Shown here is a 149-nucleotide sequence from Clostridium liquoris, a member of the family "c-di-AMP riboswitch aptamer (ydaO/yuaA leader)". This family represents a conserved RNA structure found upstream of the ydaO and yuaA genes in Bacillus subtilis and related genes in other bacteria.
RNA sequence: AAUAAAAGAAGGCUGAAUCCUAAGAUAAUACUUAGGUACGGAGGAACCAAUACUUGGGGUUAAUCUUAACAUAGUCAUAUGCCAUGUUAAGUAGGGAAGCCUUAUCCCGAACCCGUCAGCUAACUUCGGAAGCAAGAAAGGUGGGGAAA
Number, nucleotide and partner (000 for none) at each position: 001a000002a000003u000004a000005a000006a000007a000008g000009a000010a000011g000012g133013c132014u131015g000016a000017a000018u000019c036020c035021u034022a033023a032024g031025a000026u000027a000028a000029u000030a000031c024032u023033u022034a021035g020036g019037u000038a000039c128040g127041g126042a125043g124044g000045a000046a000047c000048c056049a055050a000051u000052a000053c000054u000055u049056g048057g114058g113059g112060u000061u000062a000063a000064u000065c091066u090067u089068a088069a087070c086071a085072u084073a000074g000075u000076c000077a000078u000079a000080u000081g000082c000083c000084a072085u071086g070087u069088u068089a067090a066091g065092u000093a000094g108095g107096g106097a105098a000099g000100c000101c000102u000103u000104a000105u097106c096107c095108c094109g000110a000111a000112c059113c058114c057115g000116u000117c000118a000119g000120c000121u000122a000123a000124c043125u042126u041127c040128g039129g000130a000131a014132g013133c012134a000135a000136g000137a000138a000139a000140g000141g000142u000143g000144g000145g000146g000147a000148a000149a000